The record is a 113-nucleotide sequence from Paenibacillus dendrobii, which matches "epsC RNA" in Rfam. The source organism's lineage runs through Bacteria, Bacillati, Bacilli, Paenibacillaceae and Paenibacillus. The match comes from Rfam's covariance-model search (106 bits). Rfam classes the family as a cis-regulatory element. The base pairs follow the family's consensus structure, which is taken from published work.

[Rfam]
RNA sequence: AGGUUAUGUCUACUGUACCUUUAUCAUGGUAGGCACUCGAUCAUGCUGUGGGUAUGCGAAUACCUUAGACGUAAAUCGUCAAGAGUGUGAUGUGAGGUCGGGUUAAAUGCCCG
Numbered sequence: 001a002g003g004u005u006a007u008g009u010c011u012a013c014u015g016u017a018c019c020u021u022u023a024u025c026a027u028g029g030u031a032g033g034c035a036c037u038c039g040a041u042c043a044u045g046c047u048g049u050g051g052g053u054a055u056g057c058g059a060a061u062a063c064c065u066u067a068g069a070c071g072u073a074a075a076u077c078g079u080c081a082a083g084a085g086u087g088u089g090a091u092g093u094g095a096g097g098u099c100g101g102g103u104u105a106a107a108u109g110c111c112c113g
Base pairs, nucleotide, nucleotide: 001020002019003018004017007035008034009033010032011031012030013029036096037095038094039093040091041090042089043088044087045086046085047084050065051064052063053062054061055060068080069079070078071077099113100112101111102110103109